[Rfam]
RNA sequence: ACCGAGCUUAGUAACGUGAGCUUGUAACCUGAGUGGGGGUAUAAAUGUGAUGGACCUCUAGCCUAGCCCGACUGGUCUGAUUCUUUGGGCUACCUGCUGGCCCGCCCGUUCCAAGCUAGGAGCUGAGCUUUGAGACUUGGGCGAAGGCCCUGGGUCACAUUGUUCCUAGAGCGGAGGGCUCUGCGUGAGGCUGGUUACAGAGCAGCGACAACCUCCCGCUCCUGGCAGUGGAAGGAUGACGGGCCGGUGCCUUCCGAAUCCAGCACGGCCUGUUGGCUUAACCCUAGCUGGACCAUCACUUUU
Number, nucleotide and partner (000 for none) at each position: 001a040002c039003c038004g023005a022006g021007c020008u019009u018010a017011g000012u000013a000014a000015c000016g000017u010018g009019a008020g007021c006022u005023u004024g000025u000026a000027a000028c037029c036030u035031g000032a000033g000034u000035g030036g029037g028038g003039g002040u001041a000042u000043a303044a302045a301046u000047g299048u298049g297050a296051u295052g294053g293054a000055c291056c290057u000058c287059u286060a285061g282062c000063c000064u000065a278066g277067c000068c276069c275070g274071a273072c272073u000074g270075g269076u268077c267078u000079g260080a259081u258082u257083c256084u000085u000086u000087g252088g251089g250090c000091u249092a248093c000094c000095u000096g000097c247098u246099g245100g244101c243102c242103c241104g240105c000106c235107c234108g000109u233110u232111c231112c230113a229114a000115g226116c225117u224118a223119g222120g221121a220122g219123c218124u000125g165126a164127g163128c162129u000130u000131u159132g158133a000134g156135a155136c154137u153138u152139g151140g149141g148142c147143g000144a000145a000146g000147g142148c141149c140150c000151u139152g138153g137154g136155u135156c134157a000158c132159a131160u000161u000162g128163u127164u126165c125166c171167u000168a000169g000170a000171g166172c000173g216174g215175a214176g213177g212178g000179c000180u000181c000182u000183g000184c207185g206186u205187g000188a000189g000190g000191c200192u199193g198194g000195u000196u000197a000198c193199a192200g191201a000202g000203c000204a000205g186206c185207g184208a000209c000210a000211a000212c177213c176214u175215c174216c173217c000218g123219c122220u121221c120222c119223u118224g117225g116226c115227a000228g000229u113230g112231g111232a110233a109234g107235g106236a000237u000238g000239a000240c104241g103242g102243g101244c100245c099246g098247g097248u092249g091250c089251c088252u087253u000254c000255c000256g083257a082258a081259u080260c079261c000262a000263g000264c000265a000266c000267g077268g076269c075270c074271u000272g072273u071274u070275g069276g068277c066278u065279u000280a000281a000282c061283c000284c000285u060286a059287g058288c000289u000290g056291g055292a000293c053294c052295a051296u050297c049298a048299c047300u000301u045302u044303u043